[Rfam]
RNA: Rhizobiales sRNA Atu_C8
RNA sequence: GAAGAUCGCAAUGGUUCUUGUCGUGGUGAUAAAGCGCAUGGGCAGGAUGGUGUAACCAUCCGGCGAUCAGCCCAAUGCGCUGUAGAUCAAGCUCCUGACGGGGCUUUUUUUGUGCCCCGA
Dot-bracket structure: ......(.(................).)...((((((((.((..((((((.....)))))).((.....)))).)))))))....(..(((((((....)))))))).....).......